Notes: Small nucleolar RNA SNORA26: a 120-nucleotide RNA from Mus musculus. Rfam 15.1 lists 1,943 matches to the family in 640 species. Gene Ontology terms of the family: RNA processing and nucleolus. It scores 71 bits against the family's covariance model. The literature on the family includes a 2001 paper in EMBO J by Huttenhofer et al., "RNomics: an experimental approach that identifies 201 candidates for novel, small, non-messenger RNAs in mouse". The source organism's lineage runs through Eukaryota, Craniata, Vertebrata, Rodentia and Mus. About the family: The snoRNA HBI-6 belong to the H/ACA family of snoRNAs, guiding the pseudouridylation of position U4522 if the 28S rRNA. HBI-6 is the human orthologue of mouse MBI-6 snoRNA.
[Rfam]
RNA sequence: GUGCCCUUUCUAGGCUAACACAGUCCUGUAAGAGGCUAGCACAGAGGGGUAGAGGAAAUCUCUAUUAACUCAGAAAAGGCACUGCAAACCUCCUCUUGAAGCCUUUUUGAAGCCACAGCU
Numbered sequence: 001g002u003g004c005c006c007u008u009u010c011u012a013g014g015c016u017a018a019c020a021c022a023g024u025c026c027u028g029u030a031a032g033a034g035g036c037u038a039g040c041a042c043a044g045a046g047g048g049g050u051a052g053a054g055g056a057a058a059u060c061u062c063u064a065u066u067a068a069c070u071c072a073g074a075a076a077a078g079g080c081a082c083u084g085c086a087a088a089c090c091u092c093c094u095c096u097u098g099a100a101g102c103c104u105u106u107u108u109g110a111a112g113c114c115a116c117a118g119c120u
Stems, first nucleotide, its partner, number of pairs: 002051008014040004019035001021032001060112002063109002070099004076094001078092002083088001